[Rfam]
RNA sequence: UCACCCGUCAUUGGGGAGUAGCCGCUCGGCACCUGCCGAGGUCUGCGUCAACACACUUGGCUCCCACGGCCAUGGCGCAGACAGCCUCCAGCCUGGCAAGACCUUUGACCACACUGCCUCCGGUUGGGCCGGGGAUGCCGUGUGGUCUUCUGGUUUCUGCUGGCCCUCGGAGU
Number, nucleotide and partner (000 for none) at each position: 001u000002c000003a000004c000005c000006c000007g000008u000009c000010a000011u000012u000013g000014g000015g000016g000017a000018g000019u000020a000021g000022c000023c000024g000025c000026u039027c038028g037029g000030c000031a000032c000033c000034u000035g000036c000037c028038g027039a026040g000041g082042u081043c080044u079045g078046c077047g076048u075049c074050a073051a000052c000053a000054c000055a000056c000057u000058u072059g071060g070061c069062u068063c000064c000065c000066a000067c000068g062069g061070c060071c059072a058073u050074g049075g048076c047077g046078c045079a044080g043081a042082c041083a000084g000085c000086c172087u171088c170089c169090a000091g000092c000093c000094u000095g000096g000097c000098a000099a000100g000101a000102c000103c000104u000105u000106u000107g000108a000109c000110c000111a000112c000113a000114c000115u000116g000117c000118c000119u000120c000121c000122g000123g000124u000125u000126g000127g000128g000129c000130c000131g000132g000133g000134g000135a000136u000137g000138c000139c000140g000141u000142g000143u000144g000145g000146u000147c000148u000149u000150c000151u000152g000153g000154u000155u000156u000157c000158u000159g000160c000161u000162g000163g000164c000165c000166c000167u000168c000169g089170g088171a087172g086173u000
The family of this 173-nucleotide RNA from Hydrogenophaga sp. BPS33 is "Manganese Mn2+ riboswitch aptamer (yybP-ykoY)". Lineage of the source: Bacteria > Pseudomonadati > Pseudomonadota > Comamonadaceae > Hydrogenophaga. The base pairs follow the family's consensus structure. Rfam describes the family as follows. This RNA was originally discovered in E. coli during a large scale screen and was named SraF. The family was later found to exist upstream of related families of protein genes in many bacteria, including the the yybP and ykoK genes in B. subtilis. The specific functions of these proteins are unknown, but this structured RNA element may be involved in their genetic regulation as a riboswitch. On this family, see Argaman et al., Curr Biol 2001: "Novel small RNA-encoding genes in the intergenic regions of Escherichia coli". A search with the family's covariance model found it, with a score of 101 bits.